Rfam assigns this 149-nucleotide RNA from Panicum miliaceum to the family "small nucleolar RNA snoR135". The base pairs follow the family's consensus structure, which was predicted with RNAalifold.
RNA sequence: AGUGCAGGACUUCUCUAAAUAGGCAUACAACUCGUCAUUGUGUUACUUGCCACCUGAACUUGUUUCCUGCUAGACCAAUUUGAGAAAAAUGGGCAGUUGAGUUAGGCCAAUGUCUUGUGGUUUCCUCAACAAUCAUUUUUCUCAUAGUU
Numbered sequence: 001a002g003u004g005c006a007g008g009a010c011u012u013c014u015c016u017a018a019a020u021a022g023g024c025a026u027a028c029a030a031c032u033c034g035u036c037a038u039u040g041u042g043u044u045a046c047u048u049g050c051c052a053c054c055u056g057a058a059c060u061u062g063u064u065u066c067c068u069g070c071u072a073g074a075c076c077a078a079u080u081u082g083a084g085a086a087a088a089a090u091g092g093g094c095a096g097u098u099g100a101g102u103u104a105g106g107c108c109a110a111u112g113u114c115u116u117g118u119g120g121u122u123u124c125c126u127c128a129a130c131a132a133u134c135a136u137u138u139u140u141c142u143c144a145u146a147g148u149u
Stems, first nucleotide, its partner, number of pairs: 004070006082143011096130004
The literature on the family includes a 2009 paper in Nucleic Acids Res by Chen and Wu, "Mining small RNA sequencing data: a new approach to identify small nucleolar RNAs in Arabidopsis".